SAM riboswitch aptamer (S box leader): a 98-nucleotide RNA sequence from Micrococcus terreus. The base pairs follow the family's consensus structure, which is taken from published work. The literature on the family includes a 2006 paper in Nature by Montange and Batey, "Structure of the S-adenosylmethionine riboswitch regulatory mRNA element". The source organism's lineage runs through Bacteria, Bacillati, Actinomycetes, Micrococcales and Micrococcus.

RNA sequence: GAACCAUCCAGAGCGGCUGAGAGAUCUGGCUCCGUGACGCCGCAGCAACCCCCCACUCACCCCGUGGGCGAGGGUGCUACCGCCAGGACCGAUGGAGU
Dot-bracket structure: (..(((((....(((((...(((..[[[[)))......)))))((((.(((.((............)).)..))))))...(]]]]...))))))..)
Notes
It scores 57 bits against the family's covariance model.